About this RNA
A member of the RNA family "Bacilli-1 RNA" from Streptococcus satellite phage Javan250, 65 nucleotides long. The base pairs follow the family's consensus structure, which is taken from published work.

[Rfam]
RNA sequence: ACCCAUUGGUUAUGGGCAUGUAACUGUAAGCACGUUGCAUGGCUUGGCAGAGCUUAAGAACUGUU
Numbered sequence: 001a002c003c004c005a006u007u008g009g010u011u012a013u014g015g016g017c018a019u020g021u022a023a024c025u026g027u028a029a030g031c032a033c034g035u036u037g038c039a040u041g042g043c044u045u046g047g048c049a050g051a052g053c054u055u056a057a058g059a060a061c062u063g064u065u
Base pairs, nucleotide, nucleotide: 002016003015004014005013006012017041018040019039020038021037022036023035
Dot-bracket structure: .(((((.....)))))(((((((...........)))))))........................